Shown here is a 130-nucleotide sequence from Phoenix dactylifera, a member of the family "Small nucleolar RNA snoR74". For this family Rfam cites "Experimental RNomics: identification of 140 candidates for small non-messenger RNAs in the plant Arabidopsis thaliana" (Marker et al., Curr Biol, 2002). Rfam 15.1 lists 1,404 matches to the family in 223 species. It scores 111 bits against the family's covariance model. Taxonomically the source falls in Phoenix (Eukaryota, Mesangiospermae, commelinids, Arecaceae).

RNA sequence: AAAAAAGCAGGGGUCUGUUUUCCUCAUAGACAGGCCUCUCGUAAACUUUAGGAAAAUCAUGUUCAUUGUUAUUGGGUGAGCUUUUAGACUUUCUCUGUGAAAAAAAGGCUCAGUAAACAAUGAAACAUAA
Numbered sequence: 001a002a003a004a005a006a007g008c009a010g011g012g013g014u015c016u017g018u019u020u021u022c023c024u025c026a027u028a029g030a031c032a033g034g035c036c037u038c039u040c041g042u043a044a045a046c047u048u049u050a051g052g053a054a055a056a057u058c059a060u061g062u063u064c065a066u067u068g069u070u071a072u073u074g075g076g077u078g079a080g081c082u083u084u085u086a087g088a089c090u091u092u093c094u095c096u097g098u099g100a101a102a103a104a105a106a107g108g109c110u111c112a113g114u115a116a117a118c119a120a121u122g123a124a125a126c127a128u129a130a
Stems, first nucleotide, its partner, number of pairs: 005048003011037002014034004062124009077112007
Dot-bracket structure: ....(((...((.((((.............)))).))........))).............(((((((((......(((((((......................)))))))...)))))))))......